[Rfam]
RNA sequence: CUGUAAACAAGGCAAACCCAUCGAAAGGUGGGGACGCAAAAUCUCCGGCCUAAAGGGCGUCCGACGUCCCACGGUAGCGGGAUCGCCAGG
Numbered sequence: 001c002u003g004u005a006a007a008c009a010a011g012g013c014a015a016a017c018c019c020a021u022c023g024a025a026a027g028g029u030g031g032g033g034a035c036g037c038a039a040a041a042u043c044u045c046c047g048g049c050c051u052a053a054a055g056g057g058c059g060u061c062c063g064a065c066g067u068c069c070c071a072c073g074g075u076a077g078c079g080g081g082a083u084c085g086c087c088a089g090g
Base pairs, nucleotide, nucleotide: 012037013036017032018031019030020029021028022027041083042082043081045080046079047078048075049074050073055069056068057067058066

Source information
Shown here is a 90-nucleotide sequence from Propionivibrio dicarboxylicus, a member of the family "c-di-GMP-I riboswitch aptamer". The match comes from Rfam's covariance-model search (72 bits). Its family is annotated with cyclic-di-GMP binding in the Gene Ontology. Taxonomically the source falls in Propionivibrio (Bacteria, Pseudomonadati, Rhodocyclales, Rhodocyclaceae). The family's consensus secondary structure is taken from published work. GEMM was predicted in a large-scale screen for bacterial structured RNA regulatory elements.